[Rfam]
RNA: RcsR1 sRNA
RNA sequence: ACAACGGUAACUGGUGGUGGGCACGCUAACGCGGCCUUGACCAGUCAUGUCCAUCGACAAGACCAGACCAAGCCGCCCGAGAACCGAGGCGGCUUUUUU
Numbered sequence: 001a002c003a004a005c006g007g008u009a010a011c012u013g014g015u016g017g018u019g020g021g022c023a024c025g026c027u028a029a030c031g032c033g034g035c036c037u038u039g040a041c042c043a044g045u046c047a048u049g050u051c052c053a054u055c056g057a058c059a060a061g062a063c064c065a066g067a068c069c070a071a072g073c074c075g076c077c078c079g080a081g082a083a084c085c086g087a088g089g090c091g092g093c094u095u096u097u098u099u
Stems, first nucleotide, its partner, number of pairs: 011044005017038001019037004024033003048059004070095008078086002